[Rfam]
The record is a 150-nucleotide RNA sequence from Oryza sativa, which matches "MIR812 microRNA precursor family" in Rfam. A search with the family's covariance model found it, with a score of 97 bits. The family has 22 seed sequences and 57,451 matches in Rfam 15.1. NCBI's taxonomy places the organism under Eukaryota, Streptophyta, Mesangiospermae, Oryza, Oryza sativa.
RNA sequence: AACGUUUGACUGUCCGUCUUAUAUAAAAAUUUUUUAUAAUUAAUAUUUUCAUUCUUGUUAGAUGAUAAAACAUGAUUAAUACUUUAUGCGUGACUUGUCUUUUUAAUUUUAUUUCAUAAUUUUUUUAAAUAAGACGGAAGUUCAAACGUU
Numbered sequence: 001a002a003c004g005u006u007u008g009a010c011u012g013u014c015c016g017u018c019u020u021a022u023a024u025a026a027a028a029a030u031u032u033u034u035u036a037u038a039a040u041u042a043a044u045a046u047u048u049u050c051a052u053u054c055u056u057g058u059u060a061g062a063u064g065a066u067a068a069a070a071c072a073u074g075a076u077u078a079a080u081a082c083u084u085u086a087u088g089c090g091u092g093a094c095u096u097g098u099c100u101u102u103u104u105a106a107u108u109u110u111a112u113u114u115c116a117u118a119a120u121u122u123u124u125u126u127a128a129a130u131a132a133g134a135c136g137g138a139a140g141u142u143c144a145a146a147c148g149u150u
Stems, first nucleotide, its partner, number of pairs: 001150003005146005011140001013138010